The family of this 78-nucleotide sequence from Belnapia rosea is "Makes More Granules Regulator RNA (mmgR)".
It is annotated as a small RNA.
Taxonomically the source falls in Belnapia (Bacteria, Pseudomonadota, Alphaproteobacteria, Roseomonadaceae).
Pairs were carried over by alignment from the consensus structure.
SuhB later renamed mmgR (makes more granules regulator) was a putative non-coding RNA found multiple times in the Agrobacterium tumefaciens genome and related alpha-proteobacteria. Other non-coding RNAs uncovered in the same analysis include: speF, ybhL, metA, and serC.Several studies inSinorhizobium meliloti showed that suhB element is indeed a non-coding RNA:firstly it was detected on Northern blot and called Sm8RNA, secondly in an RNAseq study referred to as SmelC689.The mutant phenotype's (strain lacking the small RNA) cytoplasm contains higher content of polyhydroxybutyrate (PBH)storage granules than wild type strain. The sRNA is required to limit the PBH intracellular accumulation when the nitrogen-fixing Sinorhizobium meliloti is under condition of surplus carbon in relation to nitrogen. It has been renamed to mmgR. Further study confirmed that mmgR fine-tunes the regulation of PBH storage.Northern blot confirmed the expression of the sRNA in other rhizobia species.
A reference for the family is Corbino et al. (2005), "Evidence for a second class of S-adenosylmethionine riboswitches and other regulatory RNA motifs in alpha-proteobacteria", Genome Biol.
RNA sequence: UCUUUCUGCCGUGUGACUGGCGUUUCCUCCCUAAACUCGGGCCGUACCCCAUGGGUGCGGCCCUUUUUUUCGUCUACU
Numbered sequence: 001u002c003u004u005u006c007u008g009c010c011g012u013g014u015g016a017c018u019g020g021c022g023u024u025u026c027c028u029c030c031c032u033a034a035a036c037u038c039g040g041g042c043c044g045u046a047c048c049c050c051a052u053g054g055g056u057g058c059g060g061c062c063c064u065u066u067u068u069u070u071c072g073u074c075u076a077c078u
Stems, first nucleotide, its partner, number of pairs: 008021003039063009